[Rfam]
RNA sequence: AAGAUAUAAUCGGGAGAGACUGUGUAAAAAUGCAGCGCCGAAGGUGACAGCGAAAACUCUCAGGCAAAAGGACCGGUUAUGGACG
Dot-bracket structure: .....((((((((......((((........)))).(((((..(.(..........).))).))).......)))))))).....

This 85-nucleotide RNA sequence from Lachnospira eligens belongs to the Rfam family "Glycine riboswitch aptamer". The organism belongs to Lachnospira eligens, within Bacteria. Rfam describes the family as follows. This family represents the bacterial glycine riboswitch.